[Rfam]
RNA: Small nucleolar RNA SNORA70
Organism: Macaca mulatta
RNA sequence: AUAAACAAAAGAACACCAAUUGUGCUCCUUUCUUCCUGGGGGCCCAGUGUGCAAUGGCUGCAAACAGCUGCCUCAUUGGUAGUGUACACAGCCUGUUGCUUGUAUGGGCUGGCCUAAGAAACCUUAGAGACAGCC
Numbered sequence: 001a002u003a004a005a006c007a008a009a010a011g012a013a014c015a016c017c018a019a020u021u022g023u024g025c026u027c028c029u030u031u032c033u034u035c036c037u038g039g040g041g042g043c044c045c046a047g048u049g050u051g052c053a054a055u056g057g058c059u060g061c062a063a064a065c066a067g068c069u070g071c072c073u074c075a076u077u078g079g080u081a082g083u084g085u086a087c088a089c090a091g092c093c094u095g096u097u098g099c100u101u102g103u104a105u106g107g108g109c110u111g112g113c114c115u116a117a118g119a120a121a122c123c124u125u126a127g128a129g130a131c132a133g134c135c
Base pairs, nucleotide, nucleotide: 002053005050019048020047021046022045025042026041027040028039078123079122080121089111090110091109092108093107094106